[Rfam]
RNA sequence: UGAUGGCGAUGAUGAUGCUUACACUUCGGUUCACCUGAUAACAUAACAUGAGGGUGUUCAGUCACUACCUCAUCUGAUGCCAUUU
Dot-bracket structure: .((((((.......................................................................)))))).
Numbered sequence: 001u002g003a004u005g006g007c008g009a010u011g012a013u014g015a016u017g018c019u020u021a022c023a024c025u026u027c028g029g030u031u032c033a034c035c036u037g038a039u040a041a042c043a044u045a046a047c048a049u050g051a052g053g054g055u056g057u058u059c060a061g062u063c064a065c066u067a068c069c070u071c072a073u074c075u076g077a078u079g080c081c082a083u084u085u
Stems, first nucleotide, its partner, number of pairs: 002084006